[Rfam]
RNA: Small nucleolar RNA SNORA15
Organism: Callorhinchus milii
RNA sequence: GCAUGAGCGAAUUCUGCAUUAGUUCUUCCUUAGUUAAUGCAGUCAGACACCAUGCUAUAGUAUCCUCACUGAGUUUAGCAAGAGGGUUCUGCCUUGUCUGUUUUGGCAACACCUUUCAUUCAGUGAAUACAAUU
Numbered sequence: 001g002c003a004u005g006a007g008c009g010a011a012u013u014c015u016g017c018a019u020u021a022g023u024u025c026u027u028c029c030u031u032a033g034u035u036a037a038u039g040c041a042g043u044c045a046g047a048c049a050c051c052a053u054g055c056u057a058u059a060g061u062a063u064c065c066u067c068a069c070u071g072a073g074u075u076u077a078g079c080a081a082g083a084g085g086g087u088u089c090u091g092c093c094u095u096g097u098c099u100g101u102u103u104u105g106g107c108a109a110c111a112c113c114u115u116u117c118a119u120u121c122a123g124u125g126a127a128u129a130c131a132a133u134u
Base pairs, nucleotide, nucleotide: 001055002054003053004052005051014042015041016040017039018038019037066126067125069123070122071121072120073119074118082116083115084114085113086112087111090108091107092106093105